[Rfam]
RNA sequence: UGAGCAGCUAUGAUGAGUAAAACCUUUUUGUUAUCCUUGCACUAUGAGGUUUCCACUGAAGAAAAUCAACGGGGAAUAGAAUUCUGAGCUGCUC
Numbered sequence: 001u002g003a004g005c006a007g008c009u010a011u012g013a014u015g016a017g018u019a020a021a022a023c024c025u026u027u028u029u030g031u032u033a034u035c036c037u038u039g040c041a042c043u044a045u046g047a048g049g050u051u052u053c054c055a056c057u058g059a060a061g062a063a064a065a066u067c068a069a070c071g072g073g074g075a076a077u078a079g080a081a082u083u084c085u086g087a088g089c090u091g092c093u094c
Stems, first nucleotide, its partner, number of pairs: 002094007
Dot-bracket structure: .(((((((...............................................................................)))))))
RNA: Small nucleolar RNA snoR26